[Rfam]
Shown here is a 217-nucleotide RNA sequence, a member of the family "Group II catalytic intron D1-D4-6". A reference for the family is Bonen and Vogel (2001), "The ins and outs of group II introns", Trends Genet. Pairs were carried over by alignment from the consensus structure. Group II introns are found in rRNA, tRNA and mRNA of organelles in fungi, plants and protists, and also in mRNA in bacteria.

RNA sequence: CAAGUCCCGAGCCGGAAAGGAUUGGCCAUCCACCGGAACCGAGUGUGGCGUGGUGCGGGAGUGAUCCCGCCUGCGAAGCGUACACAGGUGGCGUGCAGGCUGUGUGAUAGAGCCUCGAUACUGAUGUCAGCGGAGCCGACGUAGUCGGAAGACCGGAAGGCAACAGCCUCGACAUUGUAACGGCCUGAUGGCGAGACUCCGCCGGGGUCUGAGAGCA
Numbered sequence: 001c002a003a004g005u006c007c008c009g010a011g012c013c014g015g016a017a018a019g020g021a022u023u024g025g026c027c028a029u030c031c032a033c034c035g036g037a038a039c040c041g042a043g044u045g046u047g048g049c050g051u052g053g054u055g056c057g058g059g060a061g062u063g064a065u066c067c068c069g070c071c072u073g074c075g076a077a078g079c080g081u082a083c084a085c086a087g088g089u090g091g092c093g094u095g096c097a098g099g100c101u102g103u104g105u106g107a108u109a110g111a112g113c114c115u116c117g118a119u120a121c122u123g124a125u126g127u128c129a130g131c132g133g134a135g136c137c138g139a140c141g142u143a144g145u146c147g148g149a150a151g152a153c154c155g156g157a158a159g160g161c162a163a164c165a166g167c168c169u170c171g172a173c174a175u176u177g178u179a180a181c182g183g184c185c186u187g188a189u190g191g192c193g194a195g196a197c198u199c200c201g202c203c204g205g206g207g208u209c210u211g212a213g214a215g216c217a
Stems, first nucleotide, its partner, number of pairs: 012036004019031004024185003038089003043085004048079001049075005055070006110209001112208006130202005135161003140155002166197001168195004173190004